[Rfam]
RNA sequence: GUGUAAGCAAUGGAGCUCCAUUCAAUCCAAGUAAUGAGGGGUGAGGUGGGGGAUUAAUACGGCUGCUUGCUCAUGAAUACCUUUUGUUAUUGCAUGAGGAUACAUACAUACAAUUUGGUUAAUAUGGUAUGUUAAUGGCACUUCAAAGGGUGAGCAUGAACUUGGAGACGUUCUUCCUAUGCUUAUUCUCAUUCUUGGAUUGAAGGGAGCUCCUCUCUCUCUCUCU
Numbered sequence: 001g002u003g004u005a006a007g008c009a010a011u012g013g014a015g016c017u018c019c020a021u022u023c024a025a026u027c028c029a030a031g032u033a034a035u036g037a038g039g040g041g042u043g044a045g046g047u048g049g050g051g052g053a054u055u056a057a058u059a060c061g062g063c064u065g066c067u068u069g070c071u072c073a074u075g076a077a078u079a080c081c082u083u084u085u086g087u088u089a090u091u092g093c094a095u096g097a098g099g100a101u102a103c104a105u106a107c108a109u110a111c112a113a114u115u116u117g118g119u120u121a122a123u124a125u126g127g128u129a130u131g132u133u134a135a136u137g138g139c140a141c142u143u144c145a146a147a148g149g150g151u152g153a154g155c156a157u158g159a160a161c162u163u164g165g166a167g168a169c170g171u172u173c174u175u176c177c178u179a180u181g182c183u184u185a186u187u188c189u190c191a192u193u194c195u196u197g198g199a200u201u202g203a204a205g206g207g208a209g210c211u212c213c214u215c216u217c218u219c220u221c222u223c224u225c226u
Stems, first nucleotide, its partner, number of pairs: 013212007023202007037189001063167002066164001072158004080150007
The record is a 226-nucleotide RNA sequence from Dendrobium catenatum, which matches "MIR159 microRNA precursor family" in Rfam. Rfam 15.1 lists 3,649 matches to the family in 242 species. Its family is annotated with miRNA-mediated post-transcriptional gene silencing and RISC complex in the Gene Ontology. A reference for the family is Rajagopalan et al. (2006), "A diverse and evolutionarily fluid set of microRNAs in Arabidopsis thaliana", Genes Dev.